RNA sequence: GUUCUGUGUAUUGAUGGUGUUCAGCAACAAGGACAUCUGUGUUUGCCUGUGUGUGGAUGGUGUUCAGCACCAAGGACAGAUGCACAUGCCU
Numbered sequence: 001g002u003u004c005u006g007u008g009u010a011u012u013g014a015u016g017g018u019g020u021u022c023a024g025c026a027a028c029a030a031g032g033a034c035a036u037c038u039g040u041g042u043u044u045g046c047c048u049g050u051g052u053g054u055g056g057a058u059g060g061u062g063u064u065c066a067g068c069a070c071c072a073a074g075g076a077c078a079g080a081u082g083c084a085c086a087u088g089c090c091u
Base pairs, nucleotide, nucleotide: 004079005078006077007076015072016071017070018069019068020067021066023064024063025062026061028059029058031052033050034049035048038045039044